The record is a 77-nucleotide sequence from Trichogramma brassicae, which matches "HDV ribozyme from F. prausnitzii" in Rfam. The base pairs follow the family's consensus structure, which is taken from published work. For this family Rfam cites "Widespread occurrence of self-cleaving ribozymes" (Webb et al., Science, 2009). NCBI's taxonomy places the organism under Eukaryota, Metazoa, Ecdysozoa, Hymenoptera, Trichogramma. Its family is annotated with catalytic activity in the Gene Ontology.
[Rfam]
RNA sequence: GGGUUCUCAAUGAACGUUCACCUCCACGUGAUGGAACCCGGGCAACGUUACAUUCAGUAACGGCUAAGAACGUUAAC
Numbered sequence: 001g002g003g004u005u006c007u008c009a010a011u012g013a014a015c016g017u018u019c020a021c022c023u024c025c026a027c028g029u030g031a032u033g034g035a036a037c038c039c040g041g042g043c044a045a046c047g048u049u050a051c052a053u054u055c056a057g058u059a060a061c062g063g064c065u066a067a068g069a070a071c072g073u074u075a076a077c
Stems, first nucleotide, its partner, number of pairs: 001039007020032001022030001046062005
Dot-bracket structure: (((((((............(.(.......).))))))))......(((((.......)))))...............